Annotation
The record is a 168-nucleotide RNA sequence from Corticimicrobacter populi, which matches "FMN riboswitch aptamer (RFN element)" in Rfam. Lineage of the source: Bacteria > Pseudomonadati > Betaproteobacteria > Burkholderiales > Corticimicrobacter. Rfam's curators write: The RFN element is a highly conserved domain that is found frequently in the 5'-untranslated regions of prokaryotic mRNAs that encode for flavin mononucleotide (FMN) biosynthesis and transport proteins.
RNA sequence: AAACGUCUUCAGGGCGGGGCGAAAUUCCCCACCGGCGGUAGGCAAAGGUCUCUGCAACACGCAGCCUCCUUCGCAAGCCCGCGAGCGCUCCCGGCCAUUGUCGGGAGGUCAGCAGAUCUGGUCAGAUGCCAGAGCCGACGGUCACAGUCCGGAUGAAAGAAGAUGCAC
Numbered sequence: 001a002a003a004c005g006u007c008u009u010c011a012g013g014g015c016g017g018g019g020c021g022a023a024a025u026u027c028c029c030c031a032c033c034g035g036c037g038g039u040a041g042g043c044a045a046a047g048g049u050c051u052c053u054g055c056a057a058c059a060c061g062c063a064g065c066c067u068c069c070u071u072c073g074c075a076a077g078c079c080c081g082c083g084a085g086c087g088c089u090c091c092c093g094g095c096c097a098u099u100g101u102c103g104g105g106a107g108g109u110c111a112g113c114a115g116a117u118c119u120g121g122u123c124a125g126a127u128g129c130c131a132g133a134g135c136c137g138a139c140g141g142u143c144a145c146a147g148u149c150c151g152g153a154u155g156a157a158a159g160a161a162g163a164u165g166c167a168c
Base pairs, nucleotide, nucleotide: 004165005164006163007162008161009160010159017029018028019027031148032147033137034136035082036081037080038079077135078134085113086112117133118132119131120130121129139151140150141149